[Rfam]
RNA sequence: GGUACUUGACGGGAACGAUCGUAUAGUACGAGAGGAACUACGAUUGGUCGCCGCUGGUGUAUCGGUUGUCCGAAAGGGCAGAUGCCGAGUAGCUACGCGACACGGGGUAAGAGCUGAACGCAUCUAAGCUCGAAACCCACCUGGAAAAGAAGUACCACCGAGGACACUUGUAGAAGACAAGUUCGAUAGACUUGGGAUGUACGUGCCGAGGCAACGAGGCAUUCAGUCCACGAGCACUAACAGUCCAAAG
Dot-bracket structure: (((((((..((((..((((((((...............))))))))(((((...(((....((((((((((....)))))...)))))....))).)))))..(((....(((((...........)))))....))).))))......))))))).....(((((((((.......)))))....(((.(((((((.....(((((..(....)..)))))....))).))))..)))...))))....
The family of this 250-nucleotide part of an RNA from Halogeometricum borinquense is "Archaeal large subunit ribosomal RNA".
Its family is annotated with ribosome and structural constituent of ribosome in the Gene Ontology.
Rfam's curators put it in the seed alignment.
A reference for the family is Yusupov et al. (2001), "Crystal structure of the ribosome at 5.5 A resolution", Science.
Lineage of the source: Archaea > Halobacteriales > Haloferacaceae > Halogeometricum > Halogeometricum borinquense.